[Rfam]
Rfam assigns this 75-nucleotide RNA from Neogemmobacter tilapiae to the family "Singlet oxygen resistance RNA X". On this family, see Peng et al., RNA Biol 2016: "Regulation of a polyamine transporter by the conserved 3' UTR-derived sRNA SorX confers resistance to singlet oxygen and organic hydroperoxides in Rhodobacter sphaeroides". SorX (RSs2461)like SorY is a singlet oxygen induced sRNA that counteracts oxidative stress by targeting mRNA for a transporter in Rhodobacter. It also has an impact on resistance against organic hydroperoxides. It targets SD sequence of potA mRNA via an aSD sequence. The aSD sequence and some neighbouring nucleotides are identical to the one of SorY (targets takP mRNA). The family's RNA type in Rfam is small RNA. Rfam 15.1 lists 528 matches to the family in 356 species.
RNA sequence: CCCCUUGUCGUGUCGGGGUUAUGGCACGGCAUCCUCCCUGUUGGACUUGGCCGGGCCAUUGGCCCGGCCCUUUUU
Numbered sequence: 001c002c003c004c005u006u007g008u009c010g011u012g013u014c015g016g017g018g019u020u021a022u023g024g025c026a027c028g029g030c031a032u033c034c035u036c037c038c039u040g041u042u043g044g045a046c047u048u049g050g051c052c053g054g055g056c057c058a059u060u061g062g063c064c065c066g067g068c069c070c071u072u073u074u075u
Stems, first nucleotide, its partner, number of pairs: 008029007049069008